[Rfam]
RNA sequence: AUACUCAGGUAAUCGCUGCAUGCUACAUGCAGAGGAAAGUCCAUGCUCACACAGACUGCGAUGUUUGUAGUGUUCGUGCUUGACGAAUUCAUAAGUCAAGGUAACCUUCAGGGUUAACGGCAGGAGGUAUUCCUAAGUCUUCGGAUAUGGGAUACGUACCUUGAAAGUGCCACAGUGACGUAGCUGAAUGGGAAACUAUUCAGGUGGAACGAGGUAAACCCCACGAGUGAGCAACCCAAAUUUUGGUAGGGGCAUCCUUCAGUAGGGAAAUGAACCGAAGUAGGGACAAGUUUUUGCACUUGUAGAUAGAUGAUUACAACCAAUGUACGAGGCUGACCACCACUUGUAGUACGUUGGCGACAGAACAUGGCUUAUCGAG
Number, nucleotide and partner (000 for none) at each position: 001a000002u000003a000004c379005u378006c377007a375008g000009g317010u316011a315012a314013u313014c312015g000016c032017u031018g030019c029020a028021u027022g000023c000024u000025a000026c000027a021028u020029g019030c018031a017032g016033a000034g000035g000036a000037a373038a372039g371040u000041c370042c369043a368044u367045g366046c231047u230048c229049a228050c227051a068052c067053a066054g065055a064056c063057u000058g000059c000060g000061a000062u000063g056064u055065u054066u053067g052068u051069a000070g000071u000072g000073u000074u226075c225076g224077u223078g222079c100080u099081u098082g097083a096084c095085g000086a000087a000088u000089u000090c000091a000092u000093a000094a000095g084096u083097c082098a081099a080100g079101g118102u116103a115104a114105c113106c112107u111108u000109c000110a000111g107112g106113g105114u104115u103116a102117a000118c101119g221120g220121c000122a161123g160124g159125a000126g000127g000128u000129a000130u152131u151132c150133c149134u000135a000136a000137g146138u145139c144140u000141u000142c000143g000144g139145a138146u137147a000148u000149g133150g132151g131152a130153u000154a000155c000156g000157u000158a000159c124160c123161u122162u000163g000164a000165a000166a000167g219168u218169g215170c214171c213172a000173c000174a000175g000176u000177g000178a000179c000180g000181u000182a000183g000184c203185u202186g201187a200188a199189u198190g197191g196192g000193a000194a000195a000196c191197u190198a189199u188200u187201c186202a185203g184204g000205u000206g000207g000208a000209a000210c000211g000212a000213g171214g170215u169216a000217a000218a168219c167220c120221c119222c078223a077224c076225g075226a074227g050228u049229g048230a047231g046232c000233a000234a000235c251236c250237c249238a000239a000240a000241u000242u000243u000244u000245g000246g000247u000248a000249g237250g236251g235252g000253c000254a000255u285256c284257c283258u282259u000260c280261a000262g000263u000264a000265g000266g000267g000268a000269a000270a000271u000272g000273a000274a000275c000276c000277g000278a000279a000280g260281u000282a258283g257284g256285g255286a303287c302288a301289a300290g299291u298292u000293u000294u000295u000296g000297c000298a291299c290300u289301u288302g287303u286304a000305g000306a000307u000308a000309g000310a000311u000312g014313a013314u012315u011316a010317c009318a000319a000320c357321c356322a355323a354324u353325g352326u351327a350328c349329g000330a000331g000332g000333c000334u000335g000336a000337c000338c000339a000340c000341c000342a000343c000344u000345u000346g000347u000348a000349g328350u327351a326352c325353g324354u323355u322356g321357g320358c000359g000360a000361c000362a000363g000364a000365a000366c045367a044368u043369g042370g041371c039372u038373u037374a000375u007376c000377g006378a005379g004
A member of the RNA family "Bacterial RNase P class B" from Oceanobacillus picturae, 379 nucleotides long.
A search with the family's covariance model found it, with a score of 318 bits.
The source organism's lineage runs through Bacteria, Bacilli, Caryophanales, Bacillaceae and Oceanobacillus.
It is annotated as a ribozyme.
Gene Ontology terms of the family: ribonuclease P activity, dimeric ribonuclease P complex and tRNA processing.